[Rfam]
RNA sequence: GACGAUAAACGAUUUAUGGAAUAAGCGUUGCGGACCCGGGGGCGGUACCCGGCGUCUCCACCAUUUAUGGGGACGAAAUAGGAUCGACGCGCGUAGUAAAGGUAAAUUUUUCGUUCGGUGAGCACCGCCGUUAUCGGGCAAAUUUAAUAAAUGCAAACAAUAACUUUGCAUCGGCUAAUAAAAACCGUUUUGGAGCAGUAGCUUCUGCGGCUGCCUAA
Number, nucleotide and partner (000 for none) at each position: 001g115002a114003c113004g112005a111006u000007a000008a000009a000010c000011g000012a000013u000014u105015u104016a103017u102018g000019g000020a000021a000022u000023a000024a000025g000026c093027g092028u091029u000030g090031c089032g088033g000034a000035c000036c052037c051038g050039g049040g048041g000042g000043c000044g000045g000046u000047a000048c040049c039050c038051g037052g036053c075054g074055u073056c072057u071058c070059c069060a000061c000062c000063a000064u000065u000066u000067a000068u000069g059070g058071g057072g056073a055074c054075g053076a000077a000078a000079u000080a000081g000082g000083a000084u000085c000086g000087a000088c032089g031090c030091g028092c027093g026094u000095a000096g000097u000098a000099a000100a000101g000102g017103u016104a015105a014106a000107u000108u000109u000110u000111u005112c004113g003114u002115u001116c130117g129118g128119u127120g000121a000122g000123c000124a000125c000126c000127g119128c118129c117130g116131u000132u000133a000134u000135c000136g000137g000138g000139c000140a000141a000142a000143u000144u000145u000146a000147a000148u000149a000150a000151a000152u000153g000154c000155a000156a000157a000158c000159a000160a000161u000162a000163a000164c000165u000166u000167u000168g000169c000170a000171u000172c000173g000174g000175c000176u000177a000178a000179u000180a000181a000182a000183a000184a000185c000186c000187g000188u000189u000190u000191u000192g000193g000194a000195g000196c000197a000198g000199u000200a000201g000202c000203u000204u000205c000206u000207g000208c000209g000210g000211c000212u000213g000214c000215c000216u000217a000218a000
permuted transfer-messenger RNA: a 218-nucleotide RNA sequence from Candidatus Odyssella acanthamoebae. The match comes from Rfam's covariance-model search (149 bits). The family's consensus secondary structure is taken from published work. Taxonomically the source falls in Candidatus Odyssella (Bacteria, Pseudomonadati, Pseudomonadota, Alphaproteobacteria). Bacterial tmRNA, also known as 10Sa RNA or SsrA, is named for its dual tRNA and mRNA-like properties. The literature on the family includes a 2010 paper in RNA Biol by Mao et al., "Variations on the tmRNA gene". By type it is a non-coding RNA gene. Rfam links the family to the GO term RNA catabolic process.